[Rfam]
Nucleotides: 133
Base pairs, nucleotide, nucleotide: 003058004057005056006055007054008053018041019040022035023034024033025032071126073124074123075122086112087111088110089109090108095103
Number, partner (000 for none) and nucleotide at each position: 001000u002000a003058g004057c005056a006055a007054g008053c009000c010000c011000c012000c013000a014000g015000c016000g017000u018041g019040c020000u021000u022035g023034g024033u025032c026000u027000g028000c029000a030000g031000u032025g033024a034023c035022c036000u037000u038000g039000u040019g041018c042000u043000u044000u045000c046000c047000u048000a049000c050000g051000g052000u053008g054007c055006u056005u057004g058003c059000u060000a061000g062000a063000g064000c065000a066000g067000c068000u069000u070000u071126u072000a073124a074123g075122a076000u077000g078000g079000u080000u081000u082000g083000a084000g085000g086112c087111c088110u089109u090108g091000c092000u093000g094000u095103g096000c097000u098000c099000a100000c101000u102000g103095c104000c105000a106000a107000a108090c109089a110088a111087g112086g113000u114000u115000a116000u117000a118000g119000a120000a121000a122075u123074u124073u125000c126071a127000g128000a129000c130000a131000a132000u133000g